Rfam assigns this 74-nucleotide RNA sequence from Pedobacter psychrophilus to the family "Flavo-1 RNA". Pairs were carried over by alignment from the consensus structure, which is taken from published work. The organism belongs to Pedobacter, within Bacteria.
RNA sequence: UUUUUGCGUAAGGGAUAGUAAUGAAAAUCCUUUUUGUUUUCACAAAAAGAUUGUAAUGGAUAGCCCGACCCAUC
Numbered sequence: 001u002u003u004u005u006g007c008g009u010a011a012g013g014g015a016u017a018g019u020a021a022u023g024a025a026a027a028u029c030c031u032u033u034u035u036g037u038u039u040u041c042a043c044a045a046a047a048a049g050a051u052u053g054u055a056a057u058g059g060a061u062a063g064c065c066c067g068a069c070c071c072a073u074c
Stems, first nucleotide, its partner, number of pairs: 012066003016062002021057002026052004032047005